[Rfam]
RNA sequence: GGAAGUCAACGCGUCAGGUGAUGGCACAGCUGCGCAUUGAUCGCUUUCUAAUAGGCAGAUCUGCACAGUAAGUUACGUCACGGGGUUGACUCCAGGAGUCUGCAGGAUGCUCCCGUGAUUGUACGGUCGAGUCUCCAAGGAUUACUGGAGCUAUCGCAAUGUCCAAAAUUGGGGAUAUUUCGUCUAUAUCAGACGAGGUAAUUGAGUGACUUCCAUAUAAAGGCACUGCACGGGGCAGUCUGCCAUGUUUUUA
Numbered sequence: 001g002g003a004a005g006u007c008a009a010c011g012c013g014u015c016a017g018g019u020g021a022u023g024g025c026a027c028a029g030c031u032g033c034g035c036a037u038u039g040a041u042c043g044c045u046u047u048c049u050a051a052u053a054g055g056c057a058g059a060u061c062u063g064c065a066c067a068g069u070a071a072g073u074u075a076c077g078u079c080a081c082g083g084g085g086u087u088g089a090c091u092c093c094a095g096g097a098g099u100c101u102g103c104a105g106g107a108u109g110c111u112c113c114c115g116u117g118a119u120u121g122u123a124c125g126g127u128c129g130a131g132u133c134u135c136c137a138a139g140g141a142u143u144a145c146u147g148g149a150g151c152u153a154u155c156g157c158a159a160u161g162u163c164c165a166a167a168a169u170u171g172g173g174g175a176u177a178u179u180u181c182g183u184c185u186a187u188a189u190c191a192g193a194c195g196a197g198g199u200a201a202u203u204g205a206g207u208g209a210c211u212u213c214c215a216u217a218u219a220a221a222g223g224c225a226c227u228g229c230a231c232g233g234g235g236c237a238g239u240c241u242g243c244c245a246u247g248u249u250u251u252u253a
Stems, first nucleotide, its partner, number of pairs: 001214008018081005030068003034064003039061004043056004222244003225239005
A member of the RNA family "Arthropod 7SK RNA" from Coptotermes formosanus, 253 nucleotides long. The organism belongs to Coptotermes, within Eukaryota. Rfam classes the family as a non-coding RNA gene. The family has 19 seed sequences and 229 matches in Rfam 15.1. Clan: 7SK clan. A search with the family's covariance model found it, with a score of 89 bits.